[Rfam]
RNA sequence: GCUGGCAUAAUGAUGAAAUCUUUGCCGUUUACCCAUCUGACUGUUUUUUGAUGUGUAUCUUUGCACCUGAAAUGCCAGU
Numbered sequence: 001g002c003u004g005g006c007a008u009a010a011u012g013a014u015g016a017a018a019u020c021u022u023u024g025c026c027g028u029u030u031a032c033c034c035a036u037c038u039g040a041c042u043g044u045u046u047u048u049u050g051a052u053g054u055g056u057a058u059c060u061u062u063g064c065a066c067c068u069g070a071a072a073u074g075c076c077a078g079u
Base pairs, nucleotide, nucleotide: 001079002078003077004076005075006074007073